[Rfam]
RNA sequence: GACAGGCGUCGCGACUGGCGUUGAGGUGGGUGACCACCGGGGAGCGACUGGCACGCAUCCGACCGUUCGCCUGGGCCGGAGCG
Numbered sequence: 001g002a003c004a005g006g007c008g009u010c011g012c013g014a015c016u017g018g019c020g021u022u023g024a025g026g027u028g029g030g031u032g033a034c035c036a037c038c039g040g041g042g043a044g045c046g047a048c049u050g051g052c053a054c055g056c057a058u059c060c061g062a063c064c065g066u067u068c069g070c071c072u073g074g075g076c077c078g079g080a081g082c083g
Base pairs, nucleotide, nucleotide: 003050004049008048009047010046011045012044015041016040017071018070019069020068026037027036028035029034060078061077063075064074
Record summary: A member of the RNA family "ZMP/ZTP riboswitch aptamer (pfl RNA motif)" from Agromyces rhizosphaerae, 83 nucleotides long. Gene Ontology terms of the family: regulation of purine nucleotide biosynthetic process and one-carbon metabolic process. The source organism's lineage runs through Bacteria, Bacillati, Actinomycetota, Microbacteriaceae and Agromyces.